[Rfam]
RNA: U5 spliceosomal RNA
Organism: Chionoecetes opilio
RNA sequence: UAACUCUGGUUUCCCUUCAAAACGCAUAAAUCUUUCGCCUUUUACUAAAGAUUUCCGUGGAGGGGAGCAACUCAAUGAGUCUUAAAUAAUUUUUAUUGGCCCACAUUGUGGGCU
Numbered sequence: 001u002a003a004c005u006c007u008g009g010u011u012u013c014c015c016u017u018c019a020a021a022a023c024g025c026a027u028a029a030a031u032c033u034u035u036c037g038c039c040u041u042u043u044a045c046u047a048a049a050g051a052u053u054u055c056c057g058u059g060g061a062g063g064g065g066a067g068c069a070a071c072u073c074a075a076u077g078a079g080u081c082u083u084a085a086a087u088a089a090u091u092u093u094u095a096u097u098g099g100c101c102c103a104c105a106u107u108g109u110g111g112g113c114u
Stems, first nucleotide, its partner, number of pairs: 003080004009068011028054008099113006